Rfam assigns this 115-nucleotide RNA from Heliornis fulica to the family "Small nucleolar RNA SNORD90". About the family: snoRNA HBII-295 belongs to the family of C/D snoRNAs. It is the human orthologue of the mouse MBII-295 and has no identified RNA target. It scores 46 bits against the family's covariance model. The literature on the family includes a 2001 paper in EMBO J by Huttenhofer et al., "RNomics: an experimental approach that identifies 201 candidates for novel, small, non-messenger RNAs in mouse". The organism belongs to Heliornis, within Eukaryota. Gene Ontology terms of the family: RNA processing and nucleolus. Rfam classes the family as a C/D-box small nucleolar RNA.

RNA sequence: AAUUCCCUUUUCUGUGUCUUGUGAUGAAGCUUCAUAGGGCAGAUUCUGAGCUGAGAAAUGUUAUUUCUCUCCACUGAUACAUCUCUAUAUGCCAUCUGAAGACACUGCAUGUGGU
Dot-bracket structure: ...........(.((((((.........(...((((((...(..((.(.(..((((((.....))))))..).).)))...)))....)))...)....)))))).)........